[Rfam]
SAM riboswitch aptamer (S box leader): a 103-nucleotide RNA sequence from Clostridium tetanomorphum. Rfam describes the family as follows. The SAM riboswitch is found upstream of a number of genes which code for proteins involved in methionine or cysteine biosynthesis in Gram-positive bacteria. The SAM riboswitch acts at the level of transcription termination control. The predicted structure consists of a complex stem-loop region followed by a single stem loop terminator region. An alternative and mutually exclusive form involves bases in the 3' segment of helix 1 with those in the 5' region of helix 5 to form a structure termed the anti-terminator form. Pairs were carried over by alignment from the consensus structure, which is taken from published work. The organism belongs to Clostridium, within Bacteria. A search with the family's covariance model found it, with a score of 97 bits.
RNA sequence: UCCUUAUCAAGAGAAACUGAGGGACUGGCCCUAUGAUGUUUCAGCAACCGCAUAAUUGUGCAUGGUGCUAAAUCCAGCAGAACUUUGUUCUGAAAGAUGAGGG
Numbered sequence: 001u002c003c004u005u006a007u008c009a010a011g012a013g014a015a016a017c018u019g020a021g022g023g024a025c026u027g028g029c030c031c032u033a034u035g036a037u038g039u040u041u042c043a044g045c046a047a048c049c050g051c052a053u054a055a056u057u058g059u060g061c062a063u064g065g066u067g068c069u070a071a072a073u074c075c076a077g078c079a080g081a082a083c084u085u086u087g088u089u090c091u092g093a094a095a096g097a098u099g100a101g102g103g
Base pairs, nucleotide, nucleotide: 001103002102003101004100005099006098007097008096013042014041015040016039017038021031022030023029025077026076027075028074043069044068045067046066048065049064050061051060052059053058073095078092079091080090081089082088083087